[Rfam]
RNA sequence: GCACUUGAAUCUUUCCUAGGCCCGCUACUGCGUGCUGGUCUGGGGACAGAUGGUGCUAUACUAAGCGCAGAGGAUAUCCAGACGGGCUGCUUUCCAUUUGUCUUGGGGCCCGUCUCUACAACUCUGCCACAUGU
Numbered sequence: 001g002c003a004c005u006u007g008a009a010u011c012u013u014u015c016c017u018a019g020g021c022c023c024g025c026u027a028c029u030g031c032g033u034g035c036u037g038g039u040c041u042g043g044g045g046a047c048a049g050a051u052g053g054u055g056c057u058a059u060a061c062u063a064a065g066c067g068c069a070g071a072g073g074a075u076a077u078c079c080a081g082a083c084g085g086g087c088u089g090c091u092u093u094c095c096a097u098u099u100g101u102c103u104u105g106g107g108g109c110c111c112g113u114c115u116c117u118a119c120a121a122c123u124c125u126g127c128c129a130c131a132u133g134u
Stems, first nucleotide, its partner, number of pairs: 001056005013046007021038002067127006080115008094106003
The record is a 134-nucleotide sequence from Jaculus jaculus, which matches "Small nucleolar RNA SNORA55" in Rfam. Rfam links the family to the GO terms nucleolus and RNA processing. It scores 141 bits against the family's covariance model.